This 137-nucleotide sequence from Parambassis ranga belongs to the Rfam family "Small nucleolar RNA SNORA17". Taxonomically the source falls in Parambassis (Eukaryota, Eumetazoa, Osteoglossocephalai, Clupeocephala).
[Rfam]
RNA sequence: AAUGCCCCUUGAGGCGUUGCAGCCCAACUGUCUGUGUUGCAGCUGUGUCAUAAGGUGGCAGAGAGGAAACUGGUGGUAGUCUGCACUGAGACUCUACAACACACAGAGGACUCGGAGUGAUUCUCACCACCAACAGU
Numbered sequence: 001a002a003u004g005c006c007c008c009u010u011g012a013g014g015c016g017u018u019g020c021a022g023c024c025c026a027a028c029u030g031u032c033u034g035u036g037u038u039g040c041a042g043c044u045g046u047g048u049c050a051u052a053a054g055g056u057g058g059c060a061g062a063g064a065g066g067a068a069a070c071u072g073g074u075g076g077u078a079g080u081c082u083g084c085a086c087u088g089a090g091a092c093u094c095u096a097c098a099a100c101a102c103a104c105a106g107a108g109g110a111c112u113c114g115g116a117g118u119g120a121u122u123c124u125c126a127c128c129a130c131c132a133a134c135a136g137u
Base pairs, nucleotide, nucleotide: 003060004059005058006057007055008054009053010052011051013049014048015047019046020045021044022043025039026038027037028036071132072131073130074129075128076127077126084119085118087114088113089112090111092108093107094106095105
Its Rfam clan is "SNORA17 clan". The base pairs follow the family's consensus structure, which was predicted with RNAalifold. A search with the family's covariance model found it, with a score of 50 bits. The family's RNA type in Rfam is H/ACA-box small nucleolar RNA.